[Rfam]
The record is a 513-nucleotide RNA sequence from Alloactinosynnema sp. L-07, which matches "Saccharopolyspora sRNA 350" in Rfam. The family's RNA type in Rfam is antisense RNA. The organism belongs to Alloactinosynnema, within Bacteria. For this family Rfam cites "Prediction and characterization of small non-coding RNAs related to secondary metabolites in Saccharopolyspora erythraea" (Liu et al., PLoS One, 2013).

RNA sequence: GCGGUCGUGGCCGUCACGCUGAACGGCCAGGUAUCGCCGUUCUGAUGGCUGACAUGGUCGCCGUCGGCCAGCACACCCAGCACGACAUCGUCGUCGUACAUGCCGGUGCCCAGCUUGUCCGCCCUGCCGUGCGCGAUCAGGCAGAUCCGGUCGGCCGGAUCCCCCGCCCGGAUGAUGACCUCGCCCGCGGCGAACUCCUGCUGCACGAACCGGUCGGCCAGCGCGGCCAGGGUCUCCUCGUCGUCGAAGUCGUGCAGCAGCGGCAACUCGCGCAAUUCCUGCGGGAUCACCCGGACCCGCGCGCCGACGUUGGUGAACUCGACACUGCCGUCGCCGACGGUGUAGGUCAGCCGCUGGUUCACGCGAUACGUGCCGCCCGCGACGGUCACCCACGGCAGCAUCUUCAGCAGCCAGCGCGGCGAGAUGCCUUGCAUCUGCGGCUCGGACUUGGUCGUCGUGGCCAGGUUGCGGGCAGCCUUGGUGCUCAGGCUGAGCUGAGCGUGCCCAUUCAGG
Numbered sequence: 001g002c003g004g005u006c007g008u009g010g011c012c013g014u015c016a017c018g019c020u021g022a023a024c025g026g027c028c029a030g031g032u033a034u035c036g037c038c039g040u041u042c043u044g045a046u047g048g049c050u051g052a053c054a055u056g057g058u059c060g061c062c063g064u065c066g067g068c069c070a071g072c073a074c075a076c077c078c079a080g081c082a083c084g085a086c087a088u089c090g091u092c093g094u095c096g097u098a099c100a101u102g103c104c105g106g107u108g109c110c111c112a113g114c115u116u117g118u119c120c121g122c123c124c125u126g127c128c129g130u131g132c133g134c135g136a137u138c139a140g141g142c143a144g145a146u147c148c149g150g151u152c153g154g155c156c157g158g159a160u161c162c163c164c165c166g167c168c169c170g171g172a173u174g175a176u177g178a179c180c181u182c183g184c185c186c187g188c189g190g191c192g193a194a195c196u197c198c199u200g201c202u203g204c205a206c207g208a209a210c211c212g213g214u215c216g217g218c219c220a221g222c223g224c225g226g227c228c229a230g231g232g233u234c235u236c237c238u239c240g241u242c243g244u245c246g247a248a249g250u251c252g253u254g255c256a257g258c259a260g261c262g263g264c265a266a267c268u269c270g271c272g273c274a275a276u277u278c279c280u281g282c283g284g285g286a287u288c289a290c291c292c293g294g295a296c297c298c299g300c301g302c303g304c305c306g307a308c309g310u311u312g313g314u315g316a317a318c319u320c321g322a323c324a325c326u327g328c329c330g331u332c333g334c335c336g337a338c339g340g341u342g343u344a345g346g347u348c349a350g351c352c353g354c355u356g357g358u359u360c361a362c363g364c365g366a367u368a369c370g371u372g373c374c375g376c377c378c379g380c381g382a383c384g385g386u387c388a389c390c391c392a393c394g395g396c397a398g399c400a401u402c403u404u405c406a407g408c409a410g411c412c413a414g415c416g417c418g419g420c421g422a423g424a425u426g427c428c429u430u431g432c433a434u435c436u437g438c439g440g441c442u443c444g445g446a447c448u449u450g451g452u453c454g455u456c457g458u459g460g461c462c463a464g465g466u467u468g469c470g471g472g473c474a475g476c477c478u479u480g481g482u483g484c485u486c487a488g489g490c491u492g493a494g495c496u497g498a499g500c501g502u503g504c505c506c507a508u509u510c511a512g513g
Stems, first nucleotide, its partner, number of pairs: 007389006014382002018328002021325001025318001028315001034313003038309004044305001046303002050299002054233002058229001060227005066110003077102001080099001082097005117222002122217002127212001129210002131206001133204003139199003143196002150191001156187003160183001162177001165174002235295003240290002243287003251281002254278001256277002260271003329342004351379001353377001355375003360372004391431002394428004399423001401421001403418001405416001407415001437476002440473001442471003446467001447465006477512002480505003484499005